[Rfam]
RNA sequence: AUUGUAAGUUUGAGGCUGUAGCAGAAGUGCUCAUGGCACAGCCCUGCCAGAUUCCAAAGAAUCUGUGGAUUCUGCU
Numbered sequence: 001a002u003u004g005u006a007a008g009u010u011u012g013a014g015g016c017u018g019u020a021g022c023a024g025a026a027g028u029g030c031u032c033a034u035g036g037c038a039c040a041g042c043c044c045u046g047c048c049a050g051a052u053u054c055c056a057a058a059g060a061a062u063c064u065g066u067g068g069a070u071u072c073u074g075c076u
Stems, first nucleotide, its partner, number of pairs: 012044001014043004020076007027039003048065007

Rfam assigns this 76-nucleotide RNA from Crocodylus porosus to the family "Mammalian CPEB3 ribozyme". Rfam 15.1 lists 5,706 matches to the family in 197 species. A search with the family's covariance model found it, with a score of 52 bits. The mammalian CPEB3 ribozyme is a self cleaving RNA located in the second intron of the CPEB3 gene which belongs to a family of genes regulating messenger RNA polyadenylation. This ribozyme is highly conserved and found only in mammals. The CPEB3 ribozyme is structurally and biochemically related to the human hepatitis delta virus (HDV) ribozyme and the HDV ribozyme is proposed to have arisen from the human transcriptome. The family's consensus secondary structure is taken from published work.